The family of this 322-nucleotide RNA sequence from Sinocyclocheilus rhinocerous is "Vertebrate telomerase RNA". Rfam 15.1 lists 523 matches to the family in 477 species. Clan: Telomerase clan. By type it is a non-coding RNA gene. Rfam links the family to the GO terms telomere maintenance via telomerase, telomerase catalytic core complex and telomerase activity. The family's consensus secondary structure is taken from published work. The source organism's lineage runs through Eukaryota, Otomorpha, Cypriniphysae, Cyprininae and Sinocyclocheilus.
RNA sequence: UUUACAGAGUACUUCUUCUAACCCUAACGCUUGAUGGCUUCCUGUACGGUAUUUAUACUGUUUUGUUUUAAGCUUUCAGUAUAUUACAGGAAGUUUUCCGCGGUUCCGAUGCGUAUAAAAAAAGCUAUAGAGUACUCUGAUGCUCGGUCUCACAGGUUUGUGUGUUUGCGCGCGGACAGUCCGACUGCCGCGAAGAGUUCACCUCUGCUGCACGUGCGUCGGAUCUGUGGGCGUUCAGCACGCUGAGCAGAGCAAAUUGAGCAUGGCCAACUUUUGCGGAUCUCUACACUGAUCCUGCAAAUAAGCCUGAGCUCAGACACUC
Numbered sequence: 001u002u003u004a005c006a007g008a009g010u011a012c013u014u015c016u017u018c019u020a021a022c023c024c025u026a027a028c029g030c031u032u033g034a035u036g037g038c039u040u041c042c043u044g045u046a047c048g049g050u051a052u053u054u055a056u057a058c059u060g061u062u063u064u065g066u067u068u069u070a071a072g073c074u075u076u077c078a079g080u081a082u083a084u085u086a087c088a089g090g091a092a093g094u095u096u097u098c099c100g101c102g103g104u105u106c107c108g109a110u111g112c113g114u115a116u117a118a119a120a121a122a123a124g125c126u127a128u129a130g131a132g133u134a135c136u137c138u139g140a141u142g143c144u145c146g147g148u149c150u151c152a153c154a155g156g157u158u159u160g161u162g163u164g165u166u167u168g169c170g171c172g173c174g175g176a177c178a179g180u181c182c183g184a185c186u187g188c189c190g191c192g193a194a195g196a197g198u199u200c201a202c203c204u205c206u207g208c209u210g211c212a213c214g215u216g217c218g219u220c221g222g223a224u225c226u227g228u229g230g231g232c233g234u235u236c237a238g239c240a241c242g243c244u245g246a247g248c249a250g251a252g253c254a255a256a257u258u259g260a261g262c263a264u265g266g267c268c269a270a271c272u273u274u275u276g277c278g279g280a281u282c283u284c285u286a287c288a289c290u291g292a293u294c295c296u297g298c299a300a301a302u303a304a305g306c307c308u309g310a311g312c313u314c315a316g317a318c319a320c321u322c
Stems, first nucleotide, its partner, number of pairs: 006138007038093005054083007071126003074122003143247006151229009160217001161214005171192005177187004194206004259314004264309003268305001274300005279294004